[Rfam]
RNA sequence: CGCGUUUUUCGCCCAGGCGGAGCUCGACCGCCGAUUGAAGUGAUGUAUGCGCUCGUGGACGAACACCGCGAAGUCCACGGGGUCGAGCCGAUGUGCAGGGUUCUGCAGAUCGCCCCU
Numbered sequence: 001c002g003c004g005u006u007u008u009u010c011g012c013c014c015a016g017g018c019g020g021a022g023c024u025c026g027a028c029c030g031c032c033g034a035u036u037g038a039a040g041u042g043a044u045g046u047a048u049g050c051g052c053u054c055g056u057g058g059a060c061g062a063a064c065a066c067c068g069c070g071a072a073g074u075c076c077a078c079g080g081g082g083u084c085g086a087g088c089c090g091a092u093g094u095g096c097a098g099g100g101u102u103c104u105g106c107a108g109a110u111c112g113c114c115c116c117u
Base pairs, nucleotide, nucleotide: 016032017031018030019029020028079116080115081114082113089112090111092109094107095106096105097104098103
Shown here is a 117-nucleotide RNA sequence from Ideonella livida, a member of the family "ALIL pseudoknot". On this family, see Mazauric et al., J Biol Chem 2008: "Apical loop-internal loop RNA pseudoknots: a new type of stimulator of -1 translational frameshifting in bacteria". The family's consensus secondary structure is taken from published work. Rfam classes the family as a cis-regulatory element.